[Rfam]
RNA sequence: GGUAGUGUCUGUGUAGGUAAUCUCAUGCGGUAACUGUGAGCGUGUGAAAAACUAUGGCUCAUAUUACCUCGUGGGAUUUCCCACCCACUACC
Numbered sequence: 001g002g003u004a005g006u007g008u009c010u011g012u013g014u015a016g017g018u019a020a021u022c023u024c025a026u027g028c029g030g031u032a033a034c035u036g037u038g039a040g041c042g043u044g045u046g047a048a049a050a051a052c053u054a055u056g057g058c059u060c061a062u063a064u065u066a067c068c069u070c071g072u073g074g075g076a077u078u079u080c081c082c083a084c085c086c087a088c089u090a091c092c
Stems, first nucleotide, its partner, number of pairs: 001092007011085001013084002016081002019078009029068005035063007
Shown here is a 92-nucleotide RNA from Nasonia vitripennis, a member of the family "mir-3477 microRNA precursor family". Taxonomically the source falls in Nasonia (Eukaryota, Dicondylia, Eumetabola, Hymenoptera). Rfam's curators put it in the seed alignment.